RNA sequence: CCCGCCACUAUGUCAGUCUAACCGUUGGCUGGACGUAUUCCAGUGGUGAGCUGAGAGAAUUCUCACGUCUUAGGAAACAGGGUCUUUCUUUAUGUGGGAGCCUCUGUGCCGUAAGACUGUGGACACAG
Number, nucleotide and partner (000 for none) at each position: 001c000002c000003c000004g000005c046006c045007a044008c043009u042010a000011u000012g000013u000014c000015a000016g034017u033018c032019u031020a030021a000022c027023c000024g000025u000026u000027g022028g000029c000030u020031g019032g018033a017034c016035g000036u000037a000038u000039u000040c000041c000042a009043g008044u007045g006046g005047u000048g000049a000050g000051c000052u000053g000054a000055g000056a000057g000058a000059a000060u000061u000062c000063u000064c121065a120066c119067g118068u116069c115070u114071u113072a000073g110074g109075a000076a000077a000078c106079a105080g104081g103082g102083u000084c000085u000086u098087u097088c096089u000090u000091u000092a000093u000094g000095u000096g088097g087098g086099a000100g000101c000102c082103u081104c080105u079106g078107u000108g000109c074110c073111g000112u000113a071114a070115g069116a068117c000118u067119g066120u065121g064122g000123a000124c000125a000126c000127a000128g000
RNA: Small nucleolar RNA SNORA65
Organism: Hymenochirus boettgeri